[Rfam]
RNA sequence: CAGGGCUGGGGAAGGGCUGCUGGGUGGUGGGGCCAGCGAGCCCAGCCUCGUGCCAGCCAGCCUCACCCGUGCCCCAGAUCAACGCCCAGGUGGGCUCCACGCUGGGUUCAAGCUGUGCAGUAACAGGUGUGAGCAUUCAUGCAGCGUUUUGAUGGUCAUGUAUGAUACUGCACACAGCG
Numbered sequence: 001c002a003g004g005g006c007u008g009g010g011g012a013a014g015g016g017c018u019g020c021u022g023g024g025u026g027g028u029g030g031g032g033c034c035a036g037c038g039a040g041c042c043c044a045g046c047c048u049c050g051u052g053c054c055a056g057c058c059a060g061c062c063u064c065a066c067c068c069g070u071g072c073c074c075c076a077g078a079u080c081a082a083c084g085c086c087c088a089g090g091u092g093g094g095c096u097c098c099a100c101g102c103u104g105g106g107u108u109c110a111a112g113c114u115g116u117g118c119a120g121u122a123a124c125a126g127g128u129g130u131g132a133g134c135a136u137u138c139a140u141g142c143a144g145c146g147u148u149u150u151g152a153u154g155g156u157c158a159u160g161u162a163u164g165a166u167a168c169u170g171c172a173c174a175c176a177g178c179g
Base pairs, nucleotide, nucleotide: 003074004073005072006071008068009067010066015062016061017060018059019057020056021055022054024053025052026047027046028045030043032041033040085106086105087104090100091099092098114174115173116172117171118170119169120168121167122166124164125163130158131157132156134154135153136152137151141148
This 179-nucleotide sequence from Aegotheles bennettii belongs to the Rfam family "Small Cajal body specific RNA 16". On this family, see Darzacq et al., EMBO J 2002: "Cajal body-specific small nuclear RNAs: a novel class of 2'-O-methylation and pseudouridylation guide RNAs". The family has 37 seed sequences and 790 matches in Rfam 15.1. It scores 130 bits against the family's covariance model. The family's RNA type in Rfam is small Cajal body RNA. Gene Ontology terms of the family: RNA processing and nucleolus. Rfam's curators write: scaRNAs are a specific class of small nuclear RNAs which localise to the Cajal bodies and guide the modification of RNA polymerase II transcribed spliceosomal RNAs U1, U2, U4, U5 and U12. ACA47 belongs to the H/ACA box class of guide RNAs as it has the predicted hairpin-hinge-hairpin-tail structure, the conserved H/ACA-box motifs and is found associated with GAR1. ACA47 is predicted to guide the pseudouridylation of residue U5 of the U1 spliceosomal snRNA.